[Rfam]
A member of the RNA family "DUF805b RNA" from Niastella vici, 35 nucleotides long. The match comes from Rfam's covariance-model search (45 bits).
RNA sequence: CCGGAGGAUGCCGAAAAUCCGUUACAGAGUAGGCA
Numbered sequence: 001c002c003g004g005a006g007g008a009u010g011c012c013g014a015a016a017a018u019c020c021g022u023u024a025c026a027g028a029g030u031a032g033g034c035a
Stems, first nucleotide, its partner, number of pairs: 002021004010034003

The base pairs follow the family's consensus structure, which is taken from published work.